[Rfam]
RNA sequence: CAUGAUUAGCCUAGCUAGGAUUGUUUAGAGGGUAGUCGCAGUCGCCCCAACUCCGACUGGUUAGAUAGCUUUAUCUAUCUAAUUAGUAAGGUGAGAAACAACAUUUGUUGGAAACUUUAAUUUUUUAAGAAAUUAAGGAACUGU
Numbered sequence: 001c002a003u004g005a006u007u008a009g010c011c012u013a014g015c016u017a018g019g020a021u022u023g024u025u026u027a028g029a030g031g032g033u034a035g036u037c038g039c040a041g042u043c044g045c046c047c048c049a050a051c052u053c054c055g056a057c058u059g060g061u062u063a064g065a066u067a068g069c070u071u072u073a074u075c076u077a078u079c080u081a082a083u084u085a086g087u088a089a090g091g092u093g094a095g096a097a098a099c100a101a102c103a104u105u106u107g108u109u110g111g112a113a114a115c116u117u118u119a120a121u122u123u124u125u126u127a128a129g130a131a132a133u134u135a136a137g138g139a140a141c142u143g144u
Stems, first nucleotide, its partner, number of pairs: 006018005030047004038144004051095003056087013099110004115138009
Rfam assigns this 144-nucleotide RNA sequence to the family "IS605-orfB-II RNA". It is annotated as a small RNA.